[Rfam]
RNA sequence: AUGAAAGCAUGUCUCCGAGUCCGUUUCACCUGUGGCCGUUUCCGCUAUGGUGAACGGACCUGAGUGAUUCGGUCAACCGGAUCAUUCACGGGGUUCGAGGCGGAAACGCGCGGACCUUCCUUUGUUGUAAAGGAGGCGCUUCAUUGAUGCA
Numbered sequence: 001a002u003g004a005a006a007g008c009a010u011g012u013c014u015c016c017g018a019g020u021c022c023g024u025u026u027c028a029c030c031u032g033u034g035g036c037c038g039u040u041u042c043c044g045c046u047a048u049g050g051u052g053a054a055c056g057g058a059c060c061u062g063a064g065u066g067a068u069u070c071g072g073u074c075a076a077c078c079g080g081a082u083c084a085u086u087c088a089c090g091g092g093g094u095u096c097g098a099g100g101c102g103g104a105a106a107c108g109c110g111c112g113g114a115c116c117u118u119c120c121u122u123u124g125u126u127g128u129a130a131a132g133g134a135g136g137c138g139c140u141u142c143a144u145u146g147a148u149g150c151a
Stems, first nucleotide, its partner, number of pairs: 003145002011137006019059006026053005034046003061088011091117007100109003119127001
RNA: Molybdenum/Tungsten riboswitch aptamer (Moco RNA motif)